[Rfam]
RNA sequence: GACCGACAUCAGUGAUUCGUUCUGCGAACCUUGCCCUACAGCGAGAUAGGCAUUCAUUCCCAGCUCUUUCAUUUGCUGCUCGCCAAUGACGCGUGUGCUGAUGUUUUUACUGUAAGCAUCCGCCAGCUGGCGCGCCUGGGAGGCAAGAUAAGCAGCGUUACAGAUGUUUGGUGGCAUAUUGCCUAAAUCUUUCGC
Numbered sequence: 001g002a003c004c005g006a007c008a009u010c011a012g013u014g015a016u017u018c019g020u021u022c023u024g025c026g027a028a029c030c031u032u033g034c035c036c037u038a039c040a041g042c043g044a045g046a047u048a049g050g051c052a053u054u055c056a057u058u059c060c061c062a063g064c065u066c067u068u069u070c071a072u073u074u075g076c077u078g079c080u081c082g083c084c085a086a087u088g089a090c091g092c093g094u095g096u097g098c099u100g101a102u103g104u105u106u107u108u109a110c111u112g113u114a115a116g117c118a119u120c121c122g123c124c125a126g127c128u129g130g131c132g133c134g135c136c137u138g139g140g141a142g143g144c145a146a147g148a149u150a151a152g153c154a155g156c157g158u159u160a161c162a163g164a165u166g167u168u169u170g171g172u173g174g175c176a177u178a179u180u181g182c183c184u185a186a187a188u189c190u191u192u193c194g195c
Stems, first nucleotide, its partner, number of pairs: 005189002012032001014030001016028005035041001050059001062077003078135002081132005087126001091123003095119003099112002102109002136163003140159002143156002167186002170183003

Annotation: The record is a 195-nucleotide sequence from Erwinia tracheiphila, which matches "Yersinia sRNA 276" in Rfam. The family's RNA type in Rfam is antisense RNA.